[Rfam]
RNA sequence: CAAUCAGCCGGAUAACUUGUUGCAAUUGCCGGAGAUUUAGUCAAGUAU
Number, nucleotide and partner (000 for none) at each position: 001c000002a036003a000004u034005c000006a000007g000008c032009c031010g000011g030012a027013u000014a000015a046016c045017u044018u043019g042020u000021u000022g000023c000024a000025a000026u000027u012028g000029c000030c011031g009032g008033a000034g004035a000036u002037u000038u000039a000040g000041u000042c019043a018044a017045g016046u015047a000048u000

A member of the RNA family "Exoribonuclease-resistant RNA (xrRNA) plant-infecting virus (class 3)" from Polerovirus GRAV, 48 nucleotides long.
The family's RNA type in Rfam is cis-regulatory element.
From the family's description: Exoribonuclease-resistant RNA (xrRNA) plant-infecting virus (class 3) is a ncRNA that was reported in Plant viruses.